[Rfam]
RNA sequence: CGAGCCGGUCAGACGAUCGCGGCGCCGCAGGCGGCACCGAGGAAAGUCCGGACUCCACAGAGCAGGGUGGUGGGCAACACCCACCCGGGGCGACCCGCGGGACAGUGCCACAGAAAACAGACCGCCUCCCUCUCCGGUCCGCCGGCGAGGAGGUAAGGGUGAAACGGUGGUGUAAGAGACCACCAGCACCCCAGGUGACUGGGGUGGCUCGGUAAACCCCACCCGGAGCAAGAUCAAGAGGAUGCGCCCGCGGGCGCAUCUGCGGAGACGCCCGAGGGCUGCUCGCCCGAGUCUCCGGGUAGAUCGCACCAGGCCGCUGGCAACAGCGGUCGCAGAUGGAUGAUCGUCGCUCACCGUACGGUGAGAACAGAAUCCGGCUUACCGACCGGCUCGUCCC
Dot-bracket structure: ((((((((((.(((((((.(((.((((....)))).)))....[[[.[[[[[((((...[[[[.((((((((((.....)))))(((((....)))).)((...(((((............((((((((.(...............).))))))..)).......((((((.......)))))).(((((((((....)))))))).)..)))..)))))))))))))...((((............................((((((......((((.]]]]))))..)))))).....))))......((((((((....))))))))..........)))))))........................]]]]]]]]...))))))))))....
RNA: Bacterial RNase P class A